[Rfam]
RNA sequence: ACAAACCUGUACGGUAAGGCAGGUCAGCCGCCGGAAGCGAGUCUUGCAUAGUAUCCAGUAAUGGAUGCAUGAAGCGUAGACAGCGACUGCUGAAGGAAUAUGAGUUAGCCUCGAAAGUUACUUUAAUGUUGAAGCCUUAUUGUUUUUAAACGAUGGGGCAACACCAAAGCCGCAUAAAUGACAAGUGGCAGCGGUUCGACCGGGGUUUGGAAGUA
Dot-bracket structure: .........(.(((...(((..[[..))).))).).((..(((((((((..((((((....)))))).)))...)).)))).))....................(..((((((..............(((((((((..((((........))))..)))....((...(((((.......]]..)))))...))))))))))))))..)......
Numbered sequence: 001a002c003a004a005a006c007c008u009g010u011a012c013g014g015u016a017a018g019g020c021a022g023g024u025c026a027g028c029c030g031c032c033g034g035a036a037g038c039g040a041g042u043c044u045u046g047c048a049u050a051g052u053a054u055c056c057a058g059u060a061a062u063g064g065a066u067g068c069a070u071g072a073a074g075c076g077u078a079g080a081c082a083g084c085g086a087c088u089g090c091u092g093a094a095g096g097a098a099u100a101u102g103a104g105u106u107a108g109c110c111u112c113g114a115a116a117g118u119u120a121c122u123u124u125a126a127u128g129u130u131g132a133a134g135c136c137u138u139a140u141u142g143u144u145u146u147u148a149a150a151c152g153a154u155g156g157g158g159c160a161a162c163a164c165c166a167a168a169g170c171c172g173c174a175u176a177a178a179u180g181a182c183a184a185g186u187g188g189c190a191g192c193g194g195u196u197c198g199a200c201c202g203g204g205g206u207u208u209g210g211a212a213g214u215a
Stems, first nucleotide, its partner, number of pairs: 010035001012033003018029003023182002037084002041081004045076002047071003052067006105209001108206006128200006134159003139154004164194002169189005